[Rfam]
RNA: let-7 microRNA precursor family
RNA sequence: CUGUGAUGAGGUAGUAAGUUGUGUUGUUGGGGAUCAGGAUAGUGUGGCCCUCGAAGGAGAUAACUAUGCAACUUACUGCCUUUCUCAU
Numbered sequence: 001c002u003g004u005g006a007u008g009a010g011g012u013a014g015u016a017a018g019u020u021g022u023g024u025u026g027u028u029g030g031g032g033a034u035c036a037g038g039a040u041a042g043u044g045u046g047g048c049c050c051u052c053g054a055a056g057g058a059g060a061u062a063a064c065u066a067u068g069c070a071a072c073u074u075a076c077u078g079c080c081u082u083u084c085u086c087a088u
Base pairs, nucleotide, nucleotide: 002087003086005084006083008082009081010080011079012078013077014076015075016074017073018072019071020070021069022068023067024066026064027063030050031049032048052059